[Rfam]
RNA sequence: GCUCGGGUGACGCAGUGGUUAGCGUGCGAGAUUGCAGAUCUUGAAGUCGCUGGUUCGAAUCCGGCUCCGAGCU
Dot-bracket structure: (((((((..((((........)))).(((((.......))))).....(((((.......)))))))))))).
RNA: tRNA